[Rfam]
RNA sequence: UUCUGCGAAAUCUAUUUUAGUAGAGCGUCAAGAAAUCUAAAUCUGGGGUAGAGCUCUCAAUGGACUAGGGGGAUGAAAGUCUUACCAAACCCAAGGAAACUUCGAAUACGGAUUUAUGUAAACUUGGCAGACAGACAUUGUGCGCGAAGGCUCAAUGUCAAAAGGGAAACAGCCCUUAUUAUCUGUUAAGGUCCCUAAGUUAUCUCUUAGUGAACAAGGAAGUUGUAUUACGACAACAACCAGGAGGUAGGCUUGGAAGCAGCCAUCCUUUAAAGAAAGCGUAACAGCUCACUGGUCUAGUAGUAUAGCGCCGAAAAUGUAUAGGGACUCAAGAGAUACACCGAAACAGUAACUAGUUAUUAUUUAUAUAACUAGGGUAGCAGAACGUUCUGUAGACUUAUGAAGCUUUUUUGAAAGAAAAGGUGGAGGUAUCAGAAGUGAGAAU
Numbered sequence: 001u002u003c004u005g006c007g008a009a010a011u012c013u014a015u016u017u018u019a020g021u022a023g024a025g026c027g028u029c030a031a032g033a034a035a036u037c038u039a040a041a042u043c044u045g046g047g048g049u050a051g052a053g054c055u056c057u058c059a060a061u062g063g064a065c066u067a068g069g070g071g072g073a074u075g076a077a078a079g080u081c082u083u084a085c086c087a088a089a090c091c092c093a094a095g096g097a098a099a100c101u102u103c104g105a106a107u108a109c110g111g112a113u114u115u116a117u118g119u120a121a122a123c124u125u126g127g128c129a130g131a132c133a134g135a136c137a138u139u140g141u142g143c144g145c146g147a148a149g150g151c152u153c154a155a156u157g158u159c160a161a162a163a164g165g166g167a168a169a170c171a172g173c174c175c176u177u178a179u180u181a182u183c184u185g186u187u188a189a190g191g192u193c194c195c196u197a198a199g200u201u202a203u204c205u206c207u208u209a210g211u212g213a214a215c216a217a218g219g220a221a222g223u224u225g226u227a228u229u230a231c232g233a234c235a236a237c238a239a240c241c242a243g244g245a246g247g248u249a250g251g252c253u254u255g256g257a258a259g260c261a262g263c264c265a266u267c268c269u270u271u272a273a274a275g276a277a278a279g280c281g282u283a284a285c286a287g288c289u290c291a292c293u294g295g296u297c298u299a300g301u302a303g304u305a306u307a308g309c310g311c312c313g314a315a316a317a318u319g320u321a322u323a324g325g326g327a328c329u330c331a332a333g334a335g336a337u338a339c340a341c342c343g344a345a346a347c348a349g350u351a352a353c354u355a356g357u358u359a360u361u362a363u364u365u366a367u368a369u370a371a372c373u374a375g376g377g378u379a380g381c382a383g384a385a386c387g388u389u390c391u392g393u394a395g396a397c398u399u400a401u402g403a404a405g406c407u408u409u410u411u412u413g414a415a416a417g418a419a420a421a422g423g424u425g426g427a428g429g430u431a432u433c434a435g436a437a438g439u440g441a442g443a444a445u
Stems, first nucleotide, its partner, number of pairs: 001385006011024005026130001027128006036121001038116008051103001052101002057097002061093003068086002070083005134159007142151002164175003179352004184348003190342003199339001201338006218312002222309010239296005245269003250264003270274001275290001279288002353375008386440001388437005396430003405424008
Description
The family of this 445-nucleotide part of an RNA from uncultured bacterium HF0070_02E07 is "Bacterial large subunit ribosomal RNA". The literature on the family includes a 2001 paper in Science by Yusupov et al., "Crystal structure of the ribosome at 5.5 A resolution". Rfam's curators put it in the seed alignment.